The record is a 75-nucleotide sequence from Musa acuminata, which matches "Small nucleolar RNA Z105" in Rfam.
RNA sequence: GAGGCAUGAUGAGGAACCUCUUUUGCGUCUGAGAAUUCAUUCUCUGAGCGAAGUAAAACCUCCUACUCAUUCUGA
Number, nucleotide and partner (000 for none) at each position: 001g000002a000003g000004g000005c000006a070007u069008g068009a067010u000011g000012a000013g000014g000015a000016a000017c000018c000019u000020c000021u000022u000023u000024u000025g000026c050027g049028u048029c000030u000031g000032a000033g000034a000035a000036u000037u000038c000039a000040u000041u000042c000043u000044c000045u000046g000047a000048g028049c027050g026051a000052a000053g000054u000055a000056a000057a000058a000059c000060c000061u000062c000063c000064u000065a000066c000067u009068c008069a007070u006071u000072c000073u000074g000075a000
The match comes from Rfam's covariance-model search (49 bits). Gene Ontology terms of the family: nucleolus and RNA processing. Taxonomically the source falls in Musa acuminata (Eukaryota, Viridiplantae, Euphyllophyta, Zingiberales).